[Rfam]
RNA: mir-139 microRNA precursor family
RNA sequence: CUGUAUUCUACAGUGCAUGUGUCUCCAGUGAUGCAAACAACUGGAGAGACAGCCCUGUUGGAAUAAC
Numbered sequence: 001c002u003g004u005a006u007u008c009u010a011c012a013g014u015g016c017a018u019g020u021g022u023c024u025c026c027a028g029u030g031a032u033g034c035a036a037a038c039a040a041c042u043g044g045a046g047a048g049a050c051a052g053c054c055c056u057g058u059u060g061g062a063a064u065a066a067c
Base pairs, nucleotide, nucleotide: 006063007062008061009060010058011057012056013055015053016052018051019050020049022047023046024045025044026043027042028041029040